[Rfam]
RNA sequence: UGCCAAGGUAUCUUUACGUCUCACUUGCUGUUGCUGUGUUUGGCUGUACCUUGGGUA
Numbered sequence: 001u002g003c004c005a006a007g008g009u010a011u012c013u014u015u016a017c018g019u020c021u022c023a024c025u026u027g028c029u030g031u032u033g034c035u036g037u038g039u040u041u042g043g044c045u046g047u048a049c050c051u052u053g054g055g056u057a
Stems, first nucleotide, its partner, number of pairs: 001057004006052001007050005018044003027034002

Notes:
The family of this 57-nucleotide RNA sequence from Brachypteracias leptosomus is "Avian HBV RNA encapsidation signal epsilon". Lineage of the source: Eukaryota > Tetrapoda > Aves > Neoaves > Brachypteracias. A reference for the family is Beck and Nassal (1997), "Sequence- and structure-specific determinants in the interaction between the RNA encapsidation signal and reverse transcriptase of avian hepatitis B viruses", J Virol. By type it is a cis-regulatory element. The family is grouped with related families in Rfam's "Hepadnavirus_epsilon clan". The match comes from Rfam's covariance-model search (65 bits).